[Rfam]
RNA sequence: AUUGUUCUUCGGGGCAGGGUGCGAUUCCCUACCGGCGGUAAAGCCCGCGAGCCAAAAGGUUGAUAUGGUGAGAUUCCAUAGCCGACAGUAAAGUCUGGAUGAGAGAAGAAUGAA
Numbered sequence: 001a002u003u004g005u006u007c008u009u010c011g012g013g014g015c016a017g018g019g020u021g022c023g024a025u026u027c028c029c030u031a032c033c034g035g036c037g038g039u040a041a042a043g044c045c046c047g048c049g050a051g052c053c054a055a056a057a058g059g060u061u062g063a064u065a066u067g068g069u070g071a072g073a074u075u076c077c078a079u080a081g082c083c084g085a086c087a088g089u090a091a092a093g094u095c096u097g098g099a100u101g102a103g104a105g106a107a108g109a110a111u112g113a114a
Base pairs, nucleotide, nucleotide: 003112004111005110006109007108008107009106010105017029018028019027031094032093033084034083035048036047037046038045043082044081051060052059053058064080065079066078067077068076086097087096088095
RNA: FMN riboswitch aptamer (RFN element)